[Rfam]
RNA sequence: UGACAACCGUUCCUCCUACUGUUUGCGAGACCUGGCAGCUGGGAUUUUAGGUUGUCACAGAUAAUUCCGGGUCUUUUUCACUCAGAGUUCAUGAGGUAGCGGGGCUGCCCCUGUGAACACUGAAAUUUGCGGGACCCAACACCC
Numbered sequence: 001u002g003a004c005a006a007c008c009g010u011u012c013c014u015c016c017u018a019c020u021g022u023u024u025g026c027g028a029g030a031c032c033u034g035g036c037a038g039c040u041g042g043g044a045u046u047u048u049a050g051g052u053u054g055u056c057a058c059a060g061a062u063a064a065u066u067c068c069g070g071g072u073c074u075u076u077u078u079c080a081c082u083c084a085g086a087g088u089u090c091a092u093g094a095g096g097u098a099g100c101g102g103g104g105c106u107g108c109c110c111c112u113g114u115g116a117a118c119a120c121u122g123a124a125a126u127u128u129g130c131g132g133g134a135c136c137c138a139a140c141a142c143c144c
Base pairs, nucleotide, nucleotide: 001057002056003055004054005053006052007051008050014044015043016042017041018040020037021036022035023034070136071135072134073133074132075131082123083122084121085120087118088117089116090115091114095109096108097107098106

Background
The record is a 144-nucleotide RNA from Albula goreensis, which matches "Small nucleolar RNA SNORA79" in Rfam. Rfam describes the family as follows. ACA65 (SNORA79) is a member of the H/ACA class of snoRNAs that guide the sites of modification of uridines to pseudouridines. This snoRNA was identified by computational screening and its expression in mouse experimentally verified by Northern blot and primer extension analysis. On this family, see Schattner et al., RNA 2006: "A computational screen for mammalian pseudouridylation guide H/ACA RNAs". It is annotated as an H/ACA-box small nucleolar RNA. Taxonomically the source falls in Albula (Eukaryota, Metazoa, Eumetazoa, Albuliformes).